[Rfam]
RNA sequence: CGCCAUGGACGGCCAUGGCGCGGUCAUACCCAGCGCGGGACGGCCCGC
Numbered sequence: 001c002g003c004c005a006u007g008g009a010c011g012g013c014c015a016u017g018g019c020g021c022g023g024u025c026a027u028a029c030c031c032a033g034c035g036c037g038g039g040a041c042g043g044c045c046c047g048c
Stems, first nucleotide, its partner, number of pairs: 001020008035048005
RNA: Guanidine-II riboswitch aptamer (mini-ykkC)